[Rfam]
RNA sequence: CACUCUGGAGAGUCCCCGGGCCACAUGCCGGGGCGCCGAAGGGAUAGCGAUCUCAGGCGCAAGGACAGAGGG
Numbered sequence: 001c002a003c004u005c006u007g008g009a010g011a012g013u014c015c016c017c018g019g020g021c022c023a024c025a026u027g028c029c030g031g032g033g034c035g036c037c038g039a040a041g042g043g044a045u046a047g048c049g050a051u052c053u054c055a056g057g058c059g060c061a062a063g064g065a066c067a068g069a070g071g072g
Stems, first nucleotide, its partner, number of pairs: 001072001003070005014033004035058003038054002042052002
Rfam assigns this 72-nucleotide RNA sequence from Palleronia salina to the family "Glycine riboswitch aptamer". Pairs were carried over by alignment from the consensus structure. Its family is annotated with glycine biosynthetic process in the Gene Ontology. It scores 39 bits against the family's covariance model. The organism belongs to Palleronia, within Bacteria.